A member of the RNA family "JUMPstart RNA" from Yersinia mollaretii, 38 nucleotides long. By type it is a cis-regulatory element. NCBI's taxonomy places the organism under Bacteria, Pseudomonadati, Enterobacterales, Yersinia, Yersinia mollaretii.
[Rfam]
RNA sequence: CAGUGCAUUGGCUGCUGUGAGCCAAGGGCGGUAGCGUU
Dot-bracket structure: .......(((((........))))).............